Histone 3' UTR stem-loop: a 46-nucleotide RNA sequence from Triplophysa tibetana.
By type it is a cis-regulatory element.
NCBI's taxonomy places the organism under Eukaryota, Opisthokonta, Actinopterygii, Cypriniformes, Triplophysa.
The match comes from Rfam's covariance-model search (39 bits).

RNA sequence: AAAAAGGCUCUUUUAAGAGCCACCCACCAUCCCACUAAAGAGAAGU
Numbered sequence: 001a002a003a004a005a006g007g008c009u010c011u012u013u014u015a016a017g018a019g020c021c022a023c024c025c026a027c028c029a030u031c032c033c034a035c036u037a038a039a040g041a042g043a044a045g046u
Stems, first nucleotide, its partner, number of pairs: 006021006